[Rfam]
RNA sequence: UAAAAGGGCCUCUGCCGUUCAUGGCACAUGGGAUGGUCAAAACGACCGUAAGUUCUGUGCGGAAUCGAAAUCAAGAGAUUUCGGAGGCAAAAUUUUUAUGUCCUGGGUGGCUGGUGCUCAUUGGCCUAGCACCCUA
Numbered sequence: 001u002a003a004a005a006g007g008g009c010c011u012c013u014g015c016c017g018u019u020c021a022u023g024g025c026a027c028a029u030g031g032g033a034u035g036g037u038c039a040a041a042a043c044g045a046c047c048g049u050a051a052g053u054u055c056u057g058u059g060c061g062g063a064a065u066c067g068a069a070a071u072c073a074a075g076a077g078a079u080u081u082c083g084g085a086g087g088c089a090a091a092a093u094u095u096u097u098a099u100g101u102c103c104u105g106g107g108u109g110g111c112u113g114g115u116g117c118u119c120a121u122u123g124g125c126c127u128a129g130c131a132c133c134c135u136a
Stems, first nucleotide, its partner, number of pairs: 008088005013026005027059008035047004060083007105134004110130005116125003